Annotation:
This 428-nucleotide RNA sequence from Algoriphagus machipongonensis belongs to the Rfam family "Bacterial RNase P class A". It is annotated as a ribozyme. Gene Ontology terms of the family: ribonuclease P activity, dimeric ribonuclease P complex and tRNA processing.
[Rfam]
RNA sequence: CGUGCAAGUCGUCUUGCCGUCCCGUACUUGAAAAUUCAAUUUCGAUUGGAUGUAUUAGAGUUGCGGGGAGGAAAGUCCGGGCAACAUAGAGCACCAUACUUCCUAACGGGAAGGGGGCUAACUGGUGACGGUUAGUUUACAGACAGUGCCACAGAAAACAAACCACCUAUUGGUUUUUAACCAGUGGGAAAGGGUGAAAAGGUGGGGUAAGAGCCCACCGCCCCGUCAGUGAUGCCGGGGGCAUGGCAAACCUUAUGGGUUGAAAGAUCAAAUAGGUUCCGCUUUGGAUUAAAUUCCAAAAAAAGUUGCUCGCUUUUAUGCGGAAUGGGUAGAUCGAUGGAUCCCGAUUGUGAAGUCGGGACUAGAUAAAUGGCAGGAGCCCUGAAUUUUUCAGGGAACAGAACCCGGCUUAUAGACUUGCACUUUUU
Numbered sequence: 001c002g003u004g005c006a007a008g009u010c011g012u013c014u015u016g017c018c019g020u021c022c023c024g025u026a027c028u029u030g031a032a033a034a035u036u037c038a039a040u041u042u043c044g045a046u047u048g049g050a051u052g053u054a055u056u057a058g059a060g061u062u063g064c065g066g067g068g069a070g071g072a073a074a075g076u077c078c079g080g081g082c083a084a085c086a087u088a089g090a091g092c093a094c095c096a097u098a099c100u101u102c103c104u105a106a107c108g109g110g111a112a113g114g115g116g117g118c119u120a121a122c123u124g125g126u127g128a129c130g131g132u133u134a135g136u137u138u139a140c141a142g143a144c145a146g147u148g149c150c151a152c153a154g155a156a157a158a159c160a161a162a163c164c165a166c167c168u169a170u171u172g173g174u175u176u177u178u179a180a181c182c183a184g185u186g187g188g189a190a191a192g193g194g195u196g197a198a199a200a201g202g203u204g205g206g207g208u209a210a211g212a213g214c215c216c217a218c219c220g221c222c223c224c225g226u227c228a229g230u231g232a233u234g235c236c237g238g239g240g241g242c243a244u245g246g247c248a249a250a251c252c253u254u255a256u257g258g259g260u261u262g263a264a265a266g267a268u269c270a271a272a273u274a275g276g277u278u279c280c281g282c283u284u285u286g287g288a289u290u291a292a293a294u295u296c297c298a299a300a301a302a303a304a305g306u307u308g309c310u311c312g313c314u315u316u317u318a319u320g321c322g323g324a325a326u327g328g329g330u331a332g333a334u335c336g337a338u339g340g341a342u343c344c345c346g347a348u349u350g351u352g353a354a355g356u357c358g359g360g361a362c363u364a365g366a367u368a369a370a371u372g373g374c375a376g377g378a379g380c381c382c383u384g385a386a387u388u389u390u391u392c393a394g395g396g397a398a399c400a401g402a403a404c405c406c407g408g409c410u411u412a413u414a415g416a417c418u419u420g421c422a423c424u425u426u427u428u
Stems, first nucleotide, its partner, number of pairs: 002423009011413001012378007020068007028060001073411003077408005082262004089311004094258005099113005114140001115138010141253002146251002148247003163193002166188008201219006220242001221240005227234002266335004276326006302316005342361008